[Rfam]
RNA sequence: GAAUACUCUCCAACUGCCAUAGCAGAAGAGCACAUCACAGCACUGUCAGAUUCUAAGGAAUCUGCGCGUUCUGCU
Numbered sequence: 001g002a003a004u005a006c007u008c009u010c011c012a013a014c015u016g017c018c019a020u021a022g023c024a025g026a027a028g029a030g031c032a033c034a035u036c037a038c039a040g041c042a043c044u045g046u047c048a049g050a051u052u053c054u055a056a057g058g059a060a061u062c063u064g065c066g067c068g069u070u071c072u073g074c075u
Base pairs, nucleotide, nucleotide: 015042016041017040021075022074023073024072025071026070027069028038030036047064048063049062050061051060052059053058
RNA: Mammalian CPEB3 ribozyme
Organism: Alligator mississippiensis